RNA sequence: CCCUCGUCCGACAAAUCGCCAUCGAAGCUUACAAACAGAGACGUCCUUCUCUGAAAGGCGUCUCGGUCCUUCUGGACCAAGAACCAAAAGCUUUGGGAGAAAGUCCCCGGACACACGUUAUUCUGCCCUCGUUGGGUGGAACAGAAACGCCGCGGAAACGCGCCGCCAUAGAAGCACAGCGGCUGACCUCCAAGACCUGCGUCCGGACGCAAUGGCCUCUCCUCUCGCCCCGCCCCGUCGCUACAUCGUUGGUUUCCUUGGCUCUGCCCGAAUCCCGAGUUUUCUGAUCCCGGGACCCUUUGGACGAAGAUAUGAGUCCGCGCCUGGGAUCGGGAGACUUGGUGCGUUUGGGUAGGGCUGGUGCCAUUGAUGACGGGAUGGCCGCGUGGGGGAGGUUGCUUGCCGGGCGAACUCAAGGGUUCGUCGGAGGAGUCCUUCGUCUCGAUCGAUAGGUAUGCGAUUGCCCGUCCUCCUGGUUCGCCGGGUUGGGCGUGUUACUCGAUGGGGCUUAUUCUUGGUGCGAGG
Numbered sequence: 001c002c003c004u005c006g007u008c009c010g011a012c013a014a015a016u017c018g019c020c021a022u023c024g025a026a027g028c029u030u031a032c033a034a035a036c037a038g039a040g041a042c043g044u045c046c047u048u049c050u051c052u053g054a055a056a057g058g059c060g061u062c063u064c065g066g067u068c069c070u071u072c073u074g075g076a077c078c079a080a081g082a083a084c085c086a087a088a089a090g091c092u093u094u095g096g097g098a099g100a101a102a103g104u105c106c107c108c109g110g111a112c113a114c115a116c117g118u119u120a121u122u123c124u125g126c127c128c129u130c131g132u133u134g135g136g137u138g139g140a141a142c143a144g145a146a147a148c149g150c151c152g153c154g155g156a157a158a159c160g161c162g163c164c165g166c167c168a169u170a171g172a173a174g175c176a177c178a179g180c181g182g183c184u185g186a187c188c189u190c191c192a193a194g195a196c197c198u199g200c201g202u203c204c205g206g207a208c209g210c211a212a213u214g215g216c217c218u219c220u221c222c223u224c225u226c227g228c229c230c231c232g233c234c235c236c237g238u239c240g241c242u243a244c245a246u247c248g249u250u251g252g253u254u255u256c257c258u259u260g261g262c263u264c265u266g267c268c269c270g271a272a273u274c275c276c277g278a279g280u281u282u283u284c285u286g287a288u289c290c291c292g293g294g295a296c297c298c299u300u301u302g303g304a305c306g307a308a309g310a311u312a313u314g315a316g317u318c319c320g321c322g323c324c325u326g327g328g329a330u331c332g333g334g335a336g337a338c339u340u341g342g343u344g345c346g347u348u349u350g351g352g353u354a355g356g357g358c359u360g361g362u363g364c365c366a367u368u369g370a371u372g373a374c375g376g377g378a379u380g381g382c383c384g385c386g387u388g389g390g391g392g393a394g395g396u397u398g399c400u401u402g403c404c405g406g407g408c409g410a411a412c413u414c415a416a417g418g419g420u421u422c423g424u425c426g427g428a429g430g431a432g433u434c435c436u437u438c439g440u441c442u443c444g445a446u447c448g449a450u451a452g453g454u455a456u457g458c459g460a461u462u463g464c465c466c467g468u469c470c471u472c473c474u475g476g477u478u479c480g481c482c483g484g485g486u487u488g489g490g491c492g493u494g495u496u497a498c499u500c501g502a503u504g505g506g507g508c509u510u511a512u513u514c515u516u517g518g519u520g521c522g523a524g525g
Base pairs, nucleotide, nucleotide: 002525003524004523005522006521007520008518009517010516011515014462015461016460017459018458019457022097023095024094025093026092027091028090038064039063040062041061042060043059044058101510102509103508105507106506107505108504394434395433396432400430401429403427404426405425408423409422410421411420412419413418464494466492467491468490469489

This 525-nucleotide RNA sequence from Colletotrichum tanaceti belongs to the Rfam family "RNase MRP". Rfam links the family to the GO terms rRNA processing, ribonuclease MRP complex and ribonuclease MRP activity. The family's RNA type in Rfam is ribozyme.